[Rfam]
The family of this 61-nucleotide RNA sequence is "L31-Actinobacteria ribosomal protein leader".
By type it is a cis-regulatory leader.
Rfam's curators put it in the seed alignment.
RNA sequence: UUGGUUCCGGUUCACGCCAAGGAGCAGAUCCAGCUCCGCAUCGAAAUGGCGACCCGGUGCC
Number, nucleotide and partner (000 for none) at each position: 001u000002u000003g061004g060005u059006u000007c057008c056009g055010g054011u000012u000013c000014a000015c051016g050017c049018c048019a047020a000021g000022g000023a000024g000025c000026a000027g000028a000029u000030c000031c000032a000033g000034c000035u000036c000037c000038g000039c000040a000041u000042c000043g000044a000045a000046a000047u019048g018049g017050c016051g015052a000053c000054c010055c009056g008057g007058u000059g005060c004061c003